The family of this 378-nucleotide RNA from Paenisporosarcina sp. HGH0030 is "Bacterial RNase P class B". Rfam describes the family as follows. Ribonuclease P (RNase P) is a ubiquitous endoribonuclease, found in archaea, bacteria and eukarya as well as chloroplasts and mitochondria. Its best characterised activity is the generation of mature 5'-ends of tRNAs by cleaving the 5'-leader elements of precursor-tRNAs. Pairs were carried over by alignment from the consensus structure, which is taken from published work. The match comes from Rfam's covariance-model search (313 bits). NCBI's taxonomy places the organism under Bacteria, Bacillati, Bacillota, Caryophanales, Paenisporosarcina.
RNA sequence: UAAUCCAGGUAAUCGCUGCAACGCUUGACGUUGUAGAGGAAAGUCCAUGCUCGCACGGUUCUGAGAUGACCGUAGUGUUCGUGCUUAGCCAAAAAAUAAGCUAAGGCAGUGUUACAGCUGACGGCGGGAACAACACCUAAGUCUUCGGAUAUGGUCUAUGUUCUCUGAAAGUGCCACAGUGACGGAGCUGAUUCGGAAACGUUUCAGGUGGAACGAGGUAAACCCCACGAGCGAGAAACCCAAAUUAUGGUAGGGGCACUCUCAUGCAGGAAUUGAACGAAUUGAGGGACAGACAAUGUCUGUAGAUAGAUGAUUACUACUCACUUGUACGAGGCAUCAGCCGCUUGAGUACGUGAUAACAAAACAUGGCUUAUUGGG
Numbered sequence: 001u002a003a004u005c006c007a008g009g010u011a012a013u014c015g016c017u018g019c020a021a022c023g024c025u026u027g028a029c030g031u032u033g034u035a036g037a038g039g040a041a042a043g044u045c046c047a048u049g050c051u052c053g054c055a056c057g058g059u060u061c062u063g064a065g066a067u068g069a070c071c072g073u074a075g076u077g078u079u080c081g082u083g084c085u086u087a088g089c090c091a092a093a094a095a096a097u098a099a100g101c102u103a104a105g106g107c108a109g110u111g112u113u114a115c116a117g118c119u120g121a122c123g124g125c126g127g128g129a130a131c132a133a134c135a136c137c138u139a140a141g142u143c144u145u146c147g148g149a150u151a152u153g154g155u156c157u158a159u160g161u162u163c164u165c166u167g168a169a170a171g172u173g174c175c176a177c178a179g180u181g182a183c184g185g186a187g188c189u190g191a192u193u194c195g196g197a198a199a200c201g202u203u204u205c206a207g208g209u210g211g212a213a214c215g216a217g218g219u220a221a222a223c224c225c226c227a228c229g230a231g232c233g234a235g236a237a238a239c240c241c242a243a244a245u246u247a248u249g250g251u252a253g254g255g256g257c258a259c260u261c262u263c264a265u266g267c268a269g270g271a272a273u274u275g276a277a278c279g280a281a282u283u284g285a286g287g288g289a290c291a292g293a294c295a296a297u298g299u300c301u302g303u304a305g306a307u308a309g310a311u312g313a314u315u316a317c318u319a320c321u322c323a324c325u326u327g328u329a330c331g332a333g334g335c336a337u338c339a340g341c342c343g344c345u346u347g348a349g350u351a352c353g354u355g356a357u358a359a360c361a362a363a364a365c366a367u368g369g370c371u372u373a374u375u376g377g378g
Base pairs, nucleotide, nucleotide: 004378005377006376007374008318009317010316011315012314013313014312016036017035018034019033020032021031041372042371043370045369046368047367048366049365050235051234052233053232054231055073056072057071058070060069061068079230080229081228082227083226084105085104086103087102088101089100106122107120108119109118110117123225124224126165127164128163129162135155136154137153141150142149143148171223172222173219174218175217188207189206190205191204194201195200239255240254241253259288260287261286262285263284264283289303290302291301292300293299294298321356322355323354324353326351327350328349